Source information: The family of this 89-nucleotide RNA sequence from Saccoglossus kowalevskii is "mir-4818 microRNA precursor family". The base pairs follow the family's consensus structure, which was predicted with RNAalifold. NCBI's taxonomy places the organism under Eukaryota, Opisthokonta, Bilateria, Enteropneusta, Saccoglossus.

[Rfam]
RNA sequence: CUGUGUUGAGUGUAUCCUCUCUAUUGAGUACAACUGUGGAUAGAUCACAUCUCGCAUUGCACUCAAUAGUGGGGCUCCUUUCAGCACCU
Numbered sequence: 001c002u003g004u005g006u007u008g009a010g011u012g013u014a015u016c017c018u019c020u021c022u023a024u025u026g027a028g029u030a031c032a033a034c035u036g037u038g039g040a041u042a043g044a045u046c047a048c049a050u051c052u053c054g055c056a057u058u059g060c061a062c063u064c065a066a067u068a069g070u071g072g073g074g075c076u077c078c079u080u081u082c083a084g085c086a087c088c089u
Stems, first nucleotide, its partner, number of pairs: 004086007012078001014076001016074004021069009031059003